[Rfam]
Rfam assigns this 90-nucleotide RNA sequence from Lachnospira multipara to the family "c-di-GMP-I riboswitch aptamer". The match comes from Rfam's covariance-model search (70 bits). Pairs were carried over by alignment from the consensus structure, which is taken from published work. The source organism's lineage runs through Bacteria, Bacillota, Lachnospirales, Lachnospiraceae and Lachnospira.

Nucleotides: 090
Base pairs, nucleotide, nucleotide: 012037013036017032018031019030020029021028022027040084041083042082043081046080047079048076049075050074055070056069057068058067
Number, partner (000 for none) and nucleotide at each position: 001000u002000u003000a004000a005000u006000a007000u008000g009000u010000u011000g012037g013036c014000a015000a016000a017032c018031u019030u020029a021028g022027c023000g024000a025000a026000a027022g028021c029020u030019a031018a032017g033000g034000a035000c036013g037012c038000a039000a040084a041083g042082c043081c044000a045000a046080g047079g048076g049075u050074c051000u052000a053000a054000u055070c056069c057068u058067u059000c060000a061000a062000g063000g064000a065000c066000g067058a068057a069056g070055g071000a072000a073000c074050g075049a076048c077000a078000g079047c080046c081043g082042g083041u084040u085000g086000c087000a088000c089000u090000u